[Rfam]
RNA sequence: CCCCUGGAUGAUGAGGAUCUAGUAUCCUAUGUGCCGGUCGGGCUGGACUUCGACUACAACCCUGUAGUCUCGUCGGUGACCGGGAGAUCGGAGCCGAUCAUGGUGGGCGAGCUGUAUGCACAGCUCGUAGGCUUCGAAA
Number, nucleotide and partner (000 for none) at each position: 001c000002c000003c000004c000005u137006g000007g135008a134009u000010g000011a000012u000013g000014a000015g000016g000017a000018u000019c000020u000021a000022g000023u000024a000025u000026c000027c000028u000029a000030u000031g000032u000033g000034c000035c000036g000037g000038u000039c000040g000041g000042g000043c000044u000045g000046g000047a000048c000049u000050u000051c000052g000053a000054c000055u000056a000057c000058a000059a000060c000061c000062c000063u000064g000065u000066a000067g000068u000069c000070u000071c000072g000073u000074c000075g000076g000077u000078g000079a000080c000081c000082g000083g000084g000085a000086g000087a000088u000089c000090g000091g000092a000093g108094c107095c106096g000097a104098u103099c000100a000101u000102g000103g098104u097105g000106g095107g094108c093109g000110a000111g000112c000113u000114g000115u000116a000117u000118g000119c000120a000121c000122a000123g000124c000125u000126c000127g000128u000129a000130g000131g000132c000133u000134u008135c007136g000137a005138a000139a000